[Rfam]
Nucleotides: 067
Base pairs, nucleotide, nucleotide: 006061007060008059009058010057011056012055022050023049024048025047026046031044032043033042
Number, partner (000 for none) and nucleotide at each position: 001000a002000u003000g004000g005000c006061c007060g008059u009058c010057c011056g012055g013000g014000c015000c016000c017000c018000u019000c020000u021000g022050g023049c024048g025047c026046g027000a028000g029000g030000c031044c032043g033042c034000g035000a036000c037000g038000a039000g040000c041000g042033g043032c044031g045000c046026c047025g048024c049023g050022u051000g052000a053000u054000g055012u056011c057010g058009g059008a060007c061006g062000g063000c064000g065000c066000g067000u